[Rfam]
Nucleotides: 141
Base pairs, nucleotide, nucleotide: 005137006136007135008134009133010132017029018028019027031121032120033111034110035049036048037047038046044109045108052087053086091107092106093105094104095103113124114123115122
Number, partner (000 for none) and nucleotide at each position: 001000g002000a003000a004000a005137u006136u007135c008134u009133u010132c011000a012000g013000g014000g015000c016000a017029g018028g019027g020000u021000g022000u023000a024000a025000u026000u027019c028018c029017c030000g031121a032120c033111c034110g035049g036048c037047g038046g039000u040000u041000a042000u043000a044109g045108u046038c047037c048036g049035c050000g051000a052087g053086c054000u055000u056000g057000g058000u059000u060000u061000u062000a063000a064000a065000a066000u067000u068000u069000u070000a071000a072000a073000u074000u075000u076000u077000u078000a079000a080000a081000a082000c083000u084000u085000u086053g087052u088000u089000g090000a091107u092106u093105u094104g095103g096000u097000g098000u099000a100000a101000u102000u103095c104094c105093a106092a107091a108045a109044c110034c111033g112000a113124c114123a115122g116000u117000a118000u119000a120032g121031u122115c123114u124113g125000g126000a127000u128000g129000g130000g131000a132010g133009a134008a135007g136006a137005a138000a139000a140000a141000c

Rfam assigns this 141-nucleotide sequence from Tyzzerella sp. An114 to the family "FMN riboswitch aptamer (RFN element)". The base pairs follow the family's consensus structure, which is taken from published work. Lineage of the source: Bacteria > Bacillati > Bacillota > Lachnospiraceae > Tyzzerella.